RNA sequence: UUAUCUGGUCGUCAACAGUGACCUGAAAGGGGAAGCUAGUCUUGACAAAGAUCAAGGCGACAUCAUCAAAUUGCGGGAACACCCUAAAGAUCUCACUACCAAGCCAAUUUCGAAAGAGAUUGGUGGCCGAGUUAAUGACCCUGGGUAUGGUAAUAACGUGAGAUAUGUGACAAUGGGCAAUCCGCAGCCAAGUCCUAAACUACAGACGUAGCAUGGAUGCAGUUCACAGACUAAAUGGUGGUGGGCCGUUGUGCGGCUUAAGAUAUAGUCGGGCCGCGUGCGAGAGUGCGCG
Numbered sequence: 001u002u003a004u005c006u007g008g009u010c011g012u013c014a015a016c017a018g019u020g021a022c023c024u025g026a027a028a029g030g031g032g033a034a035g036c037u038a039g040u041c042u043u044g045a046c047a048a049a050g051a052u053c054a055a056g057g058c059g060a061c062a063u064c065a066u067c068a069a070a071u072u073g074c075g076g077g078a079a080c081a082c083c084c085u086a087a088a089g090a091u092c093u094c095a096c097u098a099c100c101a102a103g104c105c106a107a108u109u110u111c112g113a114a115a116g117a118g119a120u121u122g123g124u125g126g127c128c129g130a131g132u133u134a135a136u137g138a139c140c141c142u143g144g145g146u147a148u149g150g151u152a153a154u155a156a157c158g159u160g161a162g163a164u165a166u167g168u169g170a171c172a173a174u175g176g177g178c179a180a181u182c183c184g185c186a187g188c189c190a191a192g193u194c195c196u197a198a199a200c201u202a203c204a205g206a207c208g209u210a211g212c213a214u215g216g217a218u219g220c221a222g223u224u225c226a227c228a229g230a231c232u233a234a235a236u237g238g239u240g241g242u243g244g245g246c247c248g249u250u251g252u253g254c255g256g257c258u259u260a261a262g263a264u265a266u267a268g269u270c271g272g273g274c275c276g277c278g279u280g281c282g283a284g285a286g287u288g289c290g291c292g
Stems, first nucleotide, its partner, number of pairs: 016025002061243005067237002072186006082177003187223002192218004200211004227271001229270005245257004277290005